Rfam assigns this 268-nucleotide RNA from Trinickia soli to the family "Staphylococcus sRNA 35 (srn_0335)". It scores 190 bits against the family's covariance model.
RNA sequence: ACUUAAAAAUAUGAGGGAGGGGGACAGAAAUGAUAUUUUCGCAAAAUUUAUUUCGUCGUCCCACCCCAACUUGCACAUUAUUGUAAGCUGACUUUCCGCCAGCUUCUAUGUUGGGGCCCCGCCAACUUGCACAUUAUUGUAAGCUGACUUUUCGUCAGCUUCUGUGUUGGGGCCCCUGACUAGAAUUGAAAAAGGCUUGUUACAAGUGCAUUUUCGUUCAGUCAACUACUGCCAAUAUAACUUCGUAGAGCAUAGAACAUUGAUUUAU
Numbered sequence: 001a002c003u004u005a006a007a008a009a010u011a012u013g014a015g016g017g018a019g020g021g022g023g024a025c026a027g028a029a030a031u032g033a034u035a036u037u038u039u040c041g042c043a044a045a046a047u048u049u050a051u052u053u054c055g056u057c058g059u060c061c062c063a064c065c066c067c068a069a070c071u072u073g074c075a076c077a078u079u080a081u082u083g084u085a086a087g088c089u090g091a092c093u094u095u096c097c098g099c100c101a102g103c104u105u106c107u108a109u110g111u112u113g114g115g116g117c118c119c120c121g122c123c124a125a126c127u128u129g130c131a132c133a134u135u136a137u138u139g140u141a142a143g144c145u146g147a148c149u150u151u152u153c154g155u156c157a158g159c160u161u162c163u164g165u166g167u168u169g170g171g172g173c174c175c176c177u178g179a180c181u182a183g184a185a186u187u188g189a190a191a192a193a194g195g196c197u198u199g200u201u202a203c204a205a206g207u208g209c210a211u212u213u214u215c216g217u218u219c220a221g222u223c224a225a226c227u228a229c230u231g232c233c234a235a236u237a238u239a240a241c242u243u244c245g246u247a248g249a250g251c252a253u254a255g256a257a258c259a260u261u262g263a264u265u266u267a268u
Base pairs, nucleotide, nucleotide: 002013004011005010015067016066017065019064021062022061023060024059025058027054028053029052030051031050032049033048035047036046037045038044039043069140070139075134079129085105086104087103088102089101090100092098110126111125112124113123114122117121141161142160143159144158145157146156147155148154163239164238165237166236167235168234169233170232172230177224178223179222180221181220183219184218185217186216188215189214190213191212192211195207196206197205198204245268246267247266248265249264251262252261
The base pairs follow the family's consensus structure, which was predicted with RNAfold. The family's RNA type in Rfam is small RNA. A reference for the family is Mader et al. (2016), "Staphylococcus aureus Transcriptome Architecture: From Laboratory to Infection-Mimicking Conditions", PLoS Genet.